Rfam assigns this 134-nucleotide sequence from Moschus moschiferus to the family "Small Cajal body specific RNA 11". The family's consensus secondary structure was predicted with RNAalifold. On this family, see Darzacq et al., EMBO J 2002: "Cajal body-specific small nuclear RNAs: a novel class of 2'-O-methylation and pseudouridylation guide RNAs". It is annotated as a small Cajal body RNA. Its family is annotated with nucleolus, Cajal body and RNA processing in the Gene Ontology. The match comes from Rfam's covariance-model search (101 bits). The family has 24 seed sequences and 853 matches in Rfam 15.1. Lineage of the source: Eukaryota > Gnathostomata > Teleostomi > Pecora > Moschus. From the family's description: scaRNAs are a specific class of small nuclear RNAs which localise to the Cajal bodies and guide the modification of RNA polymerase II transcribed spliceosomal RNAs U1, U2, U4, U5 and U12. ACA57 belongs to the H/ACA box class of guide RNAs as it has the predicted hairpin-hinge-hairpin-tail structure, conserved H/ACA-box motifs and is found associated with GAR1. ACA57 is predicted to guide the pseudouridylation of the U5 spliceosomal RNA at position U43.
Nucleotides: 134
Base pairs, nucleotide, nucleotide: 002060003059004058006056008054011052024049025048026047028045029044030043031042032041033040073129074128075127077126080122081121082120083119086116087115088114089113090112091111092110093108095106096105097104098103
Number, partner (000 for none) and nucleotide at each position: 001000u002060u003059g004058u005000a006056u007000g008054g009000g010000c011052c012000u013000a014000u015000g016000c017000c018000u019000u020000u021000u022000c023000c024049c025048c026047u027000c028045c029044c030043u031042u032041g033040u034000g035000c036000u037000c038000u039000g040033a041032c042031a043030g044029g045028g046000g047026a048025g049024g050000c051000u052011g053000a054008c055000a056006g057000g058004a059003c060002a061000c062000a063000c064000a065000g066000c067000a068000a069000u070000c071000u072000c073129c074128c075127u076000c077126u078000c079000a080122g081121u082120u083119u084000a085000g086116g087115a088114g089113a090112g091111c092110u093108g094000u095106c096105u097104u098103a099000a100000g101000a102000a103098u104097a105096g106095g107000c108093c109000u110092g111091g112090c113089u114088c115087u116086u117000a118000a119083a120082g121081g122080c123000a124000a125000u126077a127075a128074g129073g130000a131000c132000a133000g134000u